mir-129 microRNA precursor family: a 71-nucleotide RNA from Neogobius melanostomus. The family has 56 seed sequences and 1,242 matches in Rfam 15.1. A search with the family's covariance model found it, with a score of 79 bits. The family's consensus secondary structure was predicted with RNAalifold. On this family, see Lagos-Quintana et al., Curr Biol 2002: "Identification of tissue-specific microRNAs from mouse".

[Rfam]
RNA sequence: UCAGCUCUUUUUGCGGUCUGGGCUUGCUGUCCAAUCCCAAUCCAGGAAGCCCUUACCCCAAAAAGCAUCUG
Numbered sequence: 001u002c003a004g005c006u007c008u009u010u011u012u013g014c015g016g017u018c019u020g021g022g023c024u025u026g027c028u029g030u031c032c033a034a035u036c037c038c039a040a041u042c043c044a045g046g047a048a049g050c051c052c053u054u055a056c057c058c059c060a061a062a063a064a065g066c067a068u069c070u071g
Stems, first nucleotide, its partner, number of pairs: 007065007015057003020052004025047001027045002